[Rfam]
Description:
This 99-nucleotide RNA from Burkholderia glumae belongs to the Rfam family "Burkholderia sRNA Bp1_Cand612_SIPHT". The base pairs follow the family's consensus structure, which was predicted with RNAalifold.

RNA sequence: AAAAAAAAUGGGCGAAACGCCCAUCUUCUCACUCCGGUGGUCGCACCUGAGCCGCACAAAAAACCUGUACGACCAGCGACUCAGCGAUUAUAGCGUUUU
Numbered sequence: 001a002a003a004a005a006a007a008a009u010g011g012g013c014g015a016a017a018c019g020c021c022c023a024u025c026u027u028c029u030c031a032c033u034c035c036g037g038u039g040g041u042c043g044c045a046c047c048u049g050a051g052c053c054g055c056a057c058a059a060a061a062a063a064c065c066u067g068u069a070c071g072a073c074c075a076g077c078g079a080c081u082c083a084g085c086g087a088u089u090a091u092a093g094c095g096u097u098u099u
Stems, first nucleotide, its partner, number of pairs: 008024007038090007049082003053078003